[Rfam]
RNA: Bacterial small signal recognition particle RNA
RNA sequence: UGAGAGGUUGCGCGGGCAGACGCCUCGCCAACCUGGUCAGGUCCGGAAGGAAGCAGCCACAACGAGUCCCGUUUGGGUCGAUGCAAUCUCUCACCUUU
Numbered sequence: 001u002g003a004g005a006g007g008u009u010g011c012g013c014g015g016g017c018a019g020a021c022g023c024c025u026c027g028c029c030a031a032c033c034u035g036g037u038c039a040g041g042u043c044c045g046g047a048a049g050g051a052a053g054c055a056g057c058c059a060c061a062a063c064g065a066g067u068c069c070c071g072u073u074u075g076g077g078u079c080g081a082u083g084c085a086a087u088c089u090c091u092c093a094c095c096u097u098u
Stems, first nucleotide, its partner, number of pairs: 002092005007084002011080002013076001017075006024066004034059004042051003
Dot-bracket structure: .(((((((..(((...((((((.((((......((((....(((....)))....))))...))))...)))))))..))..))...)))))......